Shown here is a 149-nucleotide sequence from Capillimicrobium parvum, a member of the family "c-di-AMP riboswitch aptamer (ydaO/yuaA leader)". Rfam's curators write: This family represents a conserved RNA structure found upstream of the ydaO and yuaA genes in Bacillus subtilis and related genes in other bacteria. The ydaO/yuaA element is thought to act as a genetic 'off' switch for the ydaO and yuaA genes in its native state. It is believed that the element may be triggered during osmotic shock leading to activation of ydaO, a predicted amino acid transporter gene, and members of the yuaA-yubG operon which code for KtrA and KtrB K+ transporters. Gene Ontology terms of the family: cyclic-di-AMP binding and regulation of gene expression.

RNA sequence: AACGCCGACGCGCCCUGCGCGCCGGCGGCGGGGGAACCACCGCGGACCUUGUUCCGCUGGGGCGAGUCGGCUCCGAUCACGAGCCGUAGCGUCGCUUUCCGCGACGCGAGCCCGUCAGCUCACCCCGUAGGCGGUCCGUCACAUGUUCA
Numbered sequence: 001a002a003c004g005c006c007g008a009c010g011c012g013c014c015c016u017g018c019g020c021g022c023c024g025g026c027g028g029c030g031g032g033g034g035a036a037c038c039a040c041c042g043c044g045g046a047c048c049u050u051g052u053u054c055c056g057c058u059g060g061g062g063c064g065a066g067u068c069g070g071c072u073c074c075g076a077u078c079a080c081g082a083g084c085c086g087u088a089g090c091g092u093c094g095c096u097u098u099c100c101g102c103g104a105c106g107c108g109a110g111c112c113c114g115u116c117a118g119c120u121c122a123c124c125c126c127g128u129a130g131g132c133g134g135u136c137c138g139u140c141a142c143a144u145g146u147u148c149a
Stems, first nucleotide, its partner, number of pairs: 003133004011027003028128006038059002060113003068086004089107004